[Rfam]
RNA: Plastid-rpl16 group II-D1 intron
RNA sequence: GAGCCUCGAGUCAACAAAGACUAAGAACGUUGACUCAAAAAAAAA
Numbered sequence: 001g002a003g004c005c006u007c008g009a010g011u012c013a014a015c016a017a018a019g020a021c022u023a024a025g026a027a028c029g030u031u032g033a034c035u036c037a038a039a040a041a042a043a044a045a
Stems, first nucleotide, its partner, number of pairs: 006038001008036008